[Rfam]
RNA sequence: GCCUUUGAUGAUUUUAUCCAAACUGUUUGAGGUGUUGUGGAGCCAAGAUCCUGAUUUUCAGGGUGAACCUACUUGGUGAAACUACAUUCAUAUGACGUGACUGGAUUUACUGAGGC
Number, nucleotide and partner (000 for none) at each position: 001g116002c115003c114004u000005u000006u000007g000008a000009u000010g000011a000012u000013u000014u000015u000016a000017u000018c000019c000020a000021a000022a000023c000024u000025g000026u000027u000028u000029g000030a000031g000032g000033u000034g000035u000036u000037g000038u000039g000040g000041a000042g000043c000044c000045a000046a000047g000048a000049u063050c062051c061052u060053g059054a000055u000056u000057u000058u000059c053060a052061g051062g050063g049064u000065g000066a000067a000068c000069c000070u000071a000072c000073u000074u000075g000076g000077u000078g000079a000080a000081a000082c000083u000084a000085c000086a000087u000088u000089c000090a000091u000092a000093u000094g000095a000096c000097g000098u000099g000100a000101c000102u000103g000104g000105a000106u000107u000108u000109a000110c000111u000112g000113a000114g003115g002116c001

Shown here is a 116-nucleotide RNA sequence from Lupinus angustifolius, a member of the family "Small nucleolar RNA Z278". Pairs were carried over by alignment from the consensus structure, which was predicted with PFOLD. Taxonomically the source falls in Lupinus (Eukaryota, Tracheophyta, Euphyllophyta, Fabaceae). Rfam links the family to the GO terms RNA processing and nucleolus. Rfam 15.1 lists 1,130 matches to the family in 214 species.